[Rfam]
RNA sequence: AGGUCAGUGGUCGGCAAACUGUGGCUCACGAGCCACAUGCGGCUCGCGAGCCGCAGUUUGCCGCUCUGCUGA
Number, nucleotide and partner (000 for none) at each position: 001a000002g000003g070004u000005c068006a067007g066008u000009g065010g064011u000012c063013g062014g061015c060016a059017a058018a057019c056020u055021g054022u053023g052024g051025c050026u049027c048028a000029c046030g000031a044032g043033c042034c041035a000036c000037a000038u000039g000040c000041g034042g033043c032044u031045c000046g029047c000048g027049a026050g025051c024052c023053g022054c021055a020056g019057u018058u017059u016060g015061c014062c013063g012064c010065u009066c007067u006068g005069c000070u003071g000072a000
The family of this 72-nucleotide RNA from Cnephaeus nilssonii is "mir-9209 microRNA precursor family". Pairs were carried over by alignment from the consensus structure, which was predicted with RNAalifold. Its family is annotated with miRNA-mediated post-transcriptional gene silencing and RISC complex in the Gene Ontology. The organism belongs to Cnephaeus, within Eukaryota.